[Rfam]
RNA sequence: CUGAUGGGCACGUCCGGGUCAAUUGCGGACUGCAACACCCGAUCUCCCUUCCCGUCCCGGAUGGGAUGGAUCUCACAGAGGGGGAGCGUGUCACCGUCAG
Dot-bracket structure: (((((..((((((.((((....(((((...)))))..)))).((((((((...........................))))))))))))))....)))))
L4-Archaeoglobi ribosomal protein leades: a 100-nucleotide sequence. Rfam's curators put it in the seed alignment. By type it is a cis-regulatory leader. Pairs were carried over by alignment from the consensus structure, which is taken from published work. On this family, see Eckert and Weinberg, BMC Microbiol 2020: "Discovery of 20 novel ribosomal leader candidates in bacteria and archaea".